About this RNA
This 165-nucleotide sequence from Neogale vison belongs to the Rfam family "Interferon gamma 5' UTR regulatory element". By type it is a cis-regulatory element.
Nucleotides: 165
Base pairs, nucleotide, nucleotide: 009069010068011067012066013065014064015116017115018114019113022112026106027105028104032101033100035098041093042092043091044090045089046088047087051085052084053083056081057080058079059078117165118164121161122160123159127139128138129137130136144155145154146153147152
Number, partner (000 for none) and nucleotide at each position: 001000c002000a003000g004000u005000u006000u007000u008000c009069u010068g011067a012066u013065u014064g015116u016000c017115u018114g019113u020000a021000g022112g023000u024000c025000a026106g027105c028104u029000a030000u031000u032101a033100g034000a035098a036000a037000c038000g039000a040000a041093a042092g043091a044090u045089c046088a047087g048000c049000u050000c051085a052084g053083u054000c055000u056081u057080u058079u059078a060000g061000a062000c063000c064014u065013g066012a067011u068010c069009g070000a071000c072000u073000u074000a075000a076000a077000c078059u079058g080057g081056g082000a083053g084052c085051u086000a087047c088046u089045g090044a091043u092042u093041u094000c095000a096000a097000c098035u099000a100033c101032u102000u103000c104028a105027g106026c107000c108000u109000a110000a111000c112022u113019a114018c115017a116015a117165a118164a119000c120000a121161a122160u123159g124000a125000a126000u127139u128138a129137u130136a131000c132000a133000a134000a135000c136130u137129a138128u139127a140000u141000c142000u143000u144155a145154g146153c147152u148000u149000u150000u151000c152147a153146g154145c155144u156000u157000u158000g159123c160122g161121u162000g163000a164118u165117u
On this family, see Ben-Asouli et al., Cell 2002: "Human interferon-gamma mRNA autoregulates its translation through a pseudoknot that activates the interferon-inducible protein kinase PKR".